[Rfam]
RNA sequence: GGAAACCACAAGGGGAGCUUAUAGCUGAGAGUGAACAUUAGUUCUGACCCUUUGAACCUGUUAGUUAAUGCUAGCGCAGGGAUGUGGAUGAUUAUUUAG
Numbered sequence: 001g002g003a004a005a006c007c008a009c010a011a012g013g014g015g016a017g018c019u020u021a022u023a024g025c026u027g028a029g030a031g032u033g034a035a036c037a038u039u040a041g042u043u044c045u046g047a048c049c050c051u052u053u054g055a056a057c058c059u060g061u062u063a064g065u066u067a068a069u070g071c072u073a074g075c076g077c078a079g080g081g082a083u084g085u086g087g088a089u090g091a092u093u094a095u096u097u098a099g
Stems, first nucleotide, its partner, number of pairs: 006087005011051004016045001017025003033044004057080004061074004

The family of this 99-nucleotide RNA sequence from Robertmurraya siralis is "TPP riboswitch aptamer (THI element)". The match comes from Rfam's covariance-model search (70 bits). Vitamin B(1) in its active form thiamin pyrophosphate (TPP) is an essential coenzyme that is synthesised by coupling of pyrimidine and thiazole moieties in bacteria.